[Rfam]
c-di-GMP-I riboswitch aptamer: an 89-nucleotide RNA from Neobacillus piezotolerans. A search with the family's covariance model found it, with a score of 62 bits.
RNA sequence: UAGACCCAGGGGCAACUUAUCUGAAAAGAUAAGAACGCAAAGCUAAAGGGGCUAAAGCAGGAGACCUGCCAUGCCAGCCAGCUGCAGAU
Numbered sequence: 001u002a003g004a005c006c007c008a009g010g011g012g013c014a015a016c017u018u019a020u021c022u023g024a025a026a027a028g029a030u031a032a033g034a035a036c037g038c039a040a041a042g043c044u045a046a047a048g049g050g051g052c053u054a055a056a057g058c059a060g061g062a063g064a065c066c067u068g069c070c071a072u073g074c075c076a077g078c079c080a081g082c083u084g085c086a087g088a089u
Base pairs, nucleotide, nucleotide: 012038013037017032018031019030020029021028022027041083042082043081044080048079049078050075051074052073057069058068059067060066